[Rfam]
RNA sequence: CCUCGUCGCUUUUUCACUACGGAUCGUCCGGCACGUACCUGCCGGUGAAGGAGAAGACAA
Numbered sequence: 001c002c003u004c005g006u007c008g009c010u011u012u013u014u015c016a017c018u019a020c021g022g023a024u025c026g027u028c029c030g031g032c033a034c035g036u037a038c039c040u041g042c043c044g045g046u047g048a049a050g051g052a053g054a055a056g057a058c059a060a
Stems, first nucleotide, its partner, number of pairs: 010052007028045006
Dot-bracket structure: .........(((((((...........((((((......)))))))))))))........